About this RNA:
Shown here is a 116-nucleotide RNA from Bacillus coahuilensis, a member of the family "PyrR binding site". The source organism's lineage runs through Bacteria, Bacillota, Caryophanales, Bacillaceae and Bacillus coahuilensis. It is annotated as a cis-regulatory element. This family represents the PyrR binding site and terminator structure. The family's consensus secondary structure is taken from published work.

RNA sequence: AUUACCUUUAAUUAAGUCCAGAGAGGCUUUAAAAGGACCUAACAUCAUGUUUAAUUACUAUUAUGAUGCUUGGCAUCCUUAUGCCCUCUCGGAACUAUCGAGAGGGCUUUUGUUUU
Numbered sequence: 001a002u003u004a005c006c007u008u009u010a011a012u013u014a015a016g017u018c019c020a021g022a023g024a025g026g027c028u029u030u031a032a033a034a035g036g037a038c039c040u041a042a043c044a045u046c047a048u049g050u051u052u053a054a055u056u057a058c059u060a061u062u063a064u065g066a067u068g069c070u071u072g073g074c075a076u077c078c079u080u081a082u083g084c085c086c087u088c089u090c091g092g093a094a095c096u097a098u099c100g101a102g103a104g105g106g107c108u109u110u111u112g113u114u115u116u
Base pairs, nucleotide, nucleotide: 003037005035007033008032009031014029015028016027017026018025043068044067045066046065047064048063049062051060081109083107084106085105086104087103088102089101090100091099092098